[Rfam]
RNA sequence: GAGAGCCUGGGUACGGGGCCGGGACGCUGUUUGAGAGUCCUCUAUGAAUCUCACAGUGAACCGGUCUCUUUUCCAGCCCCUCA
Numbered sequence: 001g002a003g004a005g006c007c008u009g010g011g012u013a014c015g016g017g018g019c020c021g022g023g024a025c026g027c028u029g030u031u032u033g034a035g036a037g038u039c040c041u042c043u044a045u046g047a048a049u050c051u052c053a054c055a056g057u058g059a060a061c062c063g064g065u066c067u068c069u070u071u072u073c074c075a076g077c078c079c080c081u082c083a
Stems, first nucleotide, its partner, number of pairs: 007076004015068007025058006033052003